[Rfam]
RNA sequence: UGACGGGGACCCGCACAAGCGGUGGAGCAUGUGGUUUAAUUCGAAGCAACGCGAAGAACCUUACCAAGCCUUGACAUCCCUCUGACGUAUUUAGAGAUAGAUAGUUCCUUCGGGACAGAGGAGACAGGUGGUGCAUGGUUGUCGUCAGCUCGUGUCGUGAGAUGUUGGGUUAAGUCCCGCAACGAGCGCAACCCUUGUCGUUAGUUGCUAACAUUAAGUUGAGGACUCUAGCGAGACUGCCAGUGAUAAACUGGAGGAAGGUGGGGAUGACGUCAAAUCAUCAUGCCCCUUAUGGCUUGGGCUACACACGUGCUACAAUGGCUAGUACAAAGAGAAGCGAAGCGGUGACGUGAAGCAAACCUCAUAAAGCUAGUCUCAGUUCGGAUUGUAGGCUGCAACUCGCCUACAUGAAGUCGGAAUCGCUAGUAAUCGCGAAUCAGCAUGUCGCGGUGAAUACGUUCCCGGGUCUUGUACACACCGCCCGUCACACCACGAGAGUUUGUAACACCCGAAGCCGGUGGCCUAACCGUAAGGAAGGAGCCGUCUAAGGUGGGACAGAUGAUUGGGGUGAAGUCGUAACAAGG
Numbered sequence: 001u002g003a004c005g006g007g008g009a010c011c012c013g014c015a016c017a018a019g020c021g022g023u024g025g026a027g028c029a030u031g032u033g034g035u036u037u038a039a040u041u042c043g044a045a046g047c048a049a050c051g052c053g054a055a056g057a058a059c060c061u062u063a064c065c066a067a068g069c070c071u072u073g074a075c076a077u078c079c080c081u082c083u084g085a086c087g088u089a090u091u092u093a094g095a096g097a098u099a100g101a102u103a104g105u106u107c108c109u110u111c112g113g114g115a116c117a118g119a120g121g122a123g124a125c126a127g128g129u130g131g132u133g134c135a136u137g138g139u140u141g142u143c144g145u146c147a148g149c150u151c152g153u154g155u156c157g158u159g160a161g162a163u164g165u166u167g168g169g170u171u172a173a174g175u176c177c178c179g180c181a182a183c184g185a186g187c188g189c190a191a192c193c194c195u196u197g198u199c200g201u202u203a204g205u206u207g208c209u210a211a212c213a214u215u216a217a218g219u220u221g222a223g224g225a226c227u228c229u230a231g232c233g234a235g236a237c238u239g240c241c242a243g244u245g246a247u248a249a250a251c252u253g254g255a256g257g258a259a260g261g262u263g264g265g266g267a268u269g270a271c272g273u274c275a276a277a278u279c280a281u282c283a284u285g286c287c288c289c290u291u292a293u294g295g296c297u298u299g300g301g302c303u304a305c306a307c308a309c310g311u312g313c314u315a316c317a318a319u320g321g322c323u324a325g326u327a328c329a330a331a332g333a334g335a336a337g338c339g340a341a342g343c344g345g346u347g348a349c350g351u352g353a354a355g356c357a358a359a360c361c362u363c364a365u366a367a368a369g370c371u372a373g374u375c376u377c378a379g380u381u382c383g384g385a386u387u388g389u390a391g392g393c394u395g396c397a398a399c400u401c402g403c404c405u406a407c408a409u410g411a412a413g414u415c416g417g418a419a420u421c422g423c424u425a426g427u428a429a430u431c432g433c434g435a436a437u438c439a440g441c442a443u444g445u446c447g448c449g450g451u452g453a454a455u456a457c458g459u460u461c462c463c464g465g466g467u468c469u470u471g472u473a474c475a476c477a478c479c480g481c482c483c484g485u486c487a488c489a490c491c492a493c494g495a496g497a498g499u500u501u502g503u504a505a506c507a508c509c510c511g512a513a514g515c516c517g518g519u520g521g522c523c524u525a526a527c528c529g530u531a532a533g534g535a536a537g538g539a540g541c542c543g544u545c546u547a548a549g550g551u552g553g554g555a556c557a558g559a560u561g562a563u564u565g566g567g568g569u570g571a572a573g574u575c576g577u578a579a580c581a582a583g584g
Stems, first nucleotide, its partner, number of pairs: 001475002003472003007469007015459002019423005024316001026314008034305002040055004064300007077124002079121005088103006106115003127289002130287004136283002138278003141274001143272002148187006154163003166179004193266004198234007208223002212221002237257002240254005320375007332363003337356002342351003382413001387408007429451007478583001480580001483576002488570004493565003498560006506552004514545001516543004522538003527534002

The record is a 584-nucleotide part of an RNA from Haloplasma contractile, which matches "Bacterial small subunit ribosomal RNA" in Rfam.
On this family, see Cannone et al., BMC Bioinformatics 2002: "The comparative RNA web (CRW) site: an online database of comparative sequence and structure information for ribosomal, intron, and other RNAs".
Pairs were carried over by alignment from the consensus structure, which is taken from published work.
Taxonomically the source falls in Haloplasma contractile (Bacteria, Mycoplasmatota, Mollicutes, Haloplasmatales).